[Rfam]
RNA sequence: AGGUAUCUUUAUUACGCAGUGACGUCAGCGCCUCUUGUCAUACACCACAGAGGUGAUGACGUCACUGAUGACAUGAAGAUGCUA
Numbered sequence: 001a002g003g004u005a006u007c008u009u010u011a012u013u014a015c016g017c018a019g020u021g022a023c024g025u026c027a028g029c030g031c032c033u034c035u036u037g038u039c040a041u042a043c044a045c046c047a048c049a050g051a052g053g054u055g056a057u058g059a060c061g062u063c064a065c066u067g068a069u070g071a072c073a074u075g076a077a078g079a080u081g082c083u084a
Stems, first nucleotide, its partner, number of pairs: 002083011015070002017067011029055007

mir-4856 microRNA precursor family: an 84-nucleotide RNA sequence from Branchiostoma floridae. Its family is annotated with miRNA-mediated post-transcriptional gene silencing and RISC complex in the Gene Ontology. It is one of the family's seed sequences.